Shown here is an 87-nucleotide sequence from Digitaria exilis, a member of the family "MIR2275 microRNA precursor family".

[Rfam]
RNA sequence: CAGUUGAAUUUGAGAAUUGGAUGGAACCAAAUCUUAUUGUGAAAGCGAAGCAAGACUUGGCUUUCUCCAAUAUCUCAUGUUCAGUUG
Numbered sequence: 001c002a003g004u005u006g007a008a009u010u011u012g013a014g015a016a017u018u019g020g021a022u023g024g025a026a027c028c029a030a031a032u033c034u035u036a037u038u039g040u041g042a043a044a045g046c047g048a049a050g051c052a053a054g055a056c057u058u059g060g061c062u063u064u065c066u067c068c069a070a071u072a073u074c075u076c077a078u079g080u081u082c083a084g085u086u087g
Stems, first nucleotide, its partner, number of pairs: 004084005011077004016071006023064003027060004032055002
Rfam links the family to the GO terms miRNA-mediated post-transcriptional gene silencing and RISC complex. Lineage of the source: Eukaryota > Mesangiospermae > Liliopsida > Anthephorinae > Digitaria. It scores 73 bits against the family's covariance model. The family's consensus secondary structure was predicted with RNAalifold.